[Rfam]
RNA sequence: CCCCUCCUCGCGGGAGAGAAAGGCAACAGCCUUCGCCGAAGACGCAAGCUCCCAGAAUCGCUCAGGCCCAUGUACCGCAGGAAUUUU
Numbered sequence: 001c002c003c004c005u006c007c008u009c010g011c012g013g014g015a016g017a018g019a020a021a022g023g024c025a026a027c028a029g030c031c032u033u034c035g036c037c038g039a040a041g042a043c044g045c046a047a048g049c050u051c052c053c054a055g056a057a058u059c060g061c062u063c064a065g066g067c068c069c070a071u072g073u074a075c076c077g078c079a080g081g082a083a084u085u086u087u
Stems, first nucleotide, its partner, number of pairs: 007081002010078004020033004035067003038063002043060002